RNA: Guanidine-I riboswitch aptamer
RNA sequence: CAAAUUGUUUUCUAGGGUUCCGGGUGCUGUCUAAGGCCGACUGGUCCGAGAGAAAACGCAUCGGCCGCAAUCAUUCCGAUGUCCACGGCGGGACAAAAGCCCGGGAGAA
Numbered sequence: 001c002a003a004a005u006u007g008u009u010u011u012c013u014a015g016g017g018u019u020c021c022g023g024g025u026g027c028u029g030u031c032u033a034a035g036g037c038c039g040a041c042u043g044g045u046c047c048g049a050g051a052g053a054a055a056a057c058g059c060a061u062c063g064g065c066c067g068c069a070a071u072c073a074u075u076c077c078g079a080u081g082u083c084c085a086c087g088g089c090g091g092g093a094c095a096a097a098a099g100c101c102c103g104g105g106a107g108a109a
Stems, first nucleotide, its partner, number of pairs: 007057006015047002020044002022041001023038003027035002058082007084104001086107001090102003